This 110-nucleotide RNA sequence from Pseudogracilibacillus auburnensis belongs to the Rfam family "PyrR binding site". From the family's description: This family represents the PyrR binding site and terminator structure. This RNA structure is found upstream of a variety of genes involved in pyrimidine biosynthesis and transport.
[Rfam]
RNA sequence: AGUUCCUUUAAUUAAAUCCAGAGAGGUUUAAAAGGUAGCUAAGAUUAGAACCAUACGUUUUUUUAGGAUACGUAUGCCUCUUUGCGACCUUUUGCAAAGAGGUUUUUUUA
Numbered sequence: 001a002g003u004u005c006c007u008u009u010a011a012u013u014a015a016a017u018c019c020a021g022a023g024a025g026g027u028u029u030a031a032a033a034g035g036u037a038g039c040u041a042a043g044a045u046u047a048g049a050a051c052c053a054u055a056c057g058u059u060u061u062u063u064u065a066g067g068a069u070a071c072g073u074a075u076g077c078c079u080c081u082u083u084g085c086g087a088c089c090u091u092u093u094g095c096a097a098a099g100a101g102g103u104u105u106u107u108u109u110a
Base pairs, nucleotide, nucleotide: 003037005035006034007033008032009031013030014029015028016027017026018025045070046065047064048063049062050061053058074105076103077102078101079100080099081098082097083096084095085094086093087092